Notes:
Shown here is an 89-nucleotide sequence from Mastacembelus armatus, a member of the family "Small nucleolar RNA SNORD60". By type it is a C/D-box small nucleolar RNA. It scores 56 bits against the family's covariance model.

[Rfam]
RNA sequence: AGCCUGUGAUGACAAACCAAAUAAACUUUUCUGACACCUACUAUGAGAGCUGAACUUCAGCUCCUGAUUCGACCUGUAUUCUGAGGCUC
Numbered sequence: 001a002g003c004c005u006g007u008g009a010u011g012a013c014a015a016a017c018c019a020a021a022u023a024a025a026c027u028u029u030u031c032u033g034a035c036a037c038c039u040a041c042u043a044u045g046a047g048a049g050c051u052g053a054a055c056u057u058c059a060g061c062u063c064c065u066g067a068u069u070c071g072a073c074c075u076g077u078a079u080u081c082u083g084a085g086g087c088u089c
Base pairs, nucleotide, nucleotide: 001088002087003086004085049061050060051059052058053057